[Rfam]
This 131-nucleotide sequence from Micromonospora aurantiaca belongs to the Rfam family "c-di-AMP riboswitch aptamer (ydaO/yuaA leader)". Rfam's curators write: This family represents a conserved RNA structure found upstream of the ydaO and yuaA genes in Bacillus subtilis and related genes in other bacteria. The ydaO/yuaA element is thought to act as a genetic 'off' switch for the ydaO and yuaA genes in its native state. It is believed that the element may be triggered during osmotic shock leading to activation of ydaO, a predicted amino acid transporter gene, and members of the yuaA-yubG operon which code for KtrA and KtrB K+ transporters. Rfam links the family to the GO terms regulation of gene expression and cyclic-di-AMP binding. The source organism's lineage runs through Bacteria, Bacillati, Actinomycetota, Micromonosporaceae and Micromonospora aurantiaca (nom. illeg.).

RNA sequence: GGGCGGCCGUCGCCUAAUCGUCCGCAGGGACGAGCCGGGGAACCACGUACGUGGGGUGCAUCCGCGUCAGCGGUAGGGAUCUUCCGUCCCGAACCCGUCAGCUAACCCGGUCGGCGUUGACGGAAGGACGU
Numbered sequence: 001g002g003g004c005g006g007c008c009g010u011c012g013c014c015u016a017a018u019c020g021u022c023c024g025c026a027g028g029g030a031c032g033a034g035c036c037g038g039g040g041a042a043c044c045a046c047g048u049a050c051g052u053g054g055g056g057u058g059c060a061u062c063c064g065c066g067u068c069a070g071c072g073g074u075a076g077g078g079a080u081c082u083u084c085c086g087u088c089c090c091g092a093a094c095c096c097g098u099c100a101g102c103u104a105a106c107c108c109g110g111u112c113g114g115c116g117u118u119g120a121c122g123g124a125a126g127g128a129c130g131u
Stems, first nucleotide, its partner, number of pairs: 011116004018033006034111006044053002054096003062073004076090004